[Rfam]
RNA sequence: CGGAGGAUAAAGCGAUCUGGUGGCGCUCGCGGACUUCAAAUCCGAUGGCGGGGCGGUUGACCGCUUCGCGGGGAGUUCGAUUCUCUCAUCCUCUC
Numbered sequence: 001c002g003g004a005g006g007a008u009a010a011a012g013c014g015a016u017c018u019g020g021u022g023g024c025g026c027u028c029g030c031g032g033a034c035u036u037c038a039a040a041u042c043c044g045a046u047g048g049c050g051g052g053g054c055g056g057u058u059g060a061c062c063g064c065u066u067c068g069c070g071g072g073g074a075g076u077u078c079g080a081u082u083c084u085c086u087c088a089u090c091c092u093c094u095c
Base pairs, nucleotide, nucleotide: 002094003093004092005091006090007089008088011027012026013025014024017022030044031043032042033041048069049068050067051066052065053064054063072086073085074084075083